[Rfam]
RNA: mir-202 microRNA precursor family
RNA sequence: CUAUUCCUUUUUCCUAUGCAUAUACUUCUUUGAGGAUUUGACCUAAAGAGGUAUAGAGCAUGGGAAAAUGGGGCAG
Number, nucleotide and partner (000 for none) at each position: 001c000002u000003a000004u000005u000006c000007c000008u000009u000010u067011u066012u065013c064014c063015u062016a061017u060018g059019c058020a000021u055022a054023u053024a000025c051026u050027u049028c048029u047030u046031u045032g044033a000034g000035g000036a000037u000038u000039u000040g000041a000042c000043c000044u032045a031046a030047a029048g028049a027050g026051g025052u000053a023054u022055a021056g000057a000058g019059c018060a017061u016062g015063g014064g013065a012066a011067a010068a000069u000070g000071g000072g000073g000074c000075a000076g000